[Rfam]
RNA sequence: AGAGGCCUGUGAUGAAUAAAAGUUUUGCCUACAUUGUCUGAUUUUUCAUUAUGCAGAUUAAACUAAGAUUUUUCUGAGGCCUUU
Numbered sequence: 001a002g003a004g005g006c007c008u009g010u011g012a013u014g015a016a017u018a019a020a021a022g023u024u025u026u027g028c029c030u031a032c033a034u035u036g037u038c039u040g041a042u043u044u045u046u047c048a049u050u051a052u053g054c055a056g057a058u059u060a061a062a063c064u065a066a067g068a069u070u071u072u073u074c075u076g077a078g079g080c081c082u083u084u
Stems, first nucleotide, its partner, number of pairs: 001084002004081004

Rfam assigns this 84-nucleotide RNA from Centaurea solstitialis to the family "Small nucleolar RNA SNORD34". The source organism's lineage runs through Eukaryota, Streptophytina, Carduoideae, Centaureinae and Centaurea. About the family: snoRNA U34 is found in intron 5 of the ribosomal protein L13a gene in humans. Its family is annotated with nucleolus and RNA processing in the Gene Ontology. The literature on the family includes a 2002 paper in Mol Cell Biol by Galardi et al., "Purified box C/D snoRNPs are able to reproduce site-specific 2'-O-methylation of target RNA in vitro". The match comes from Rfam's covariance-model search (47 bits).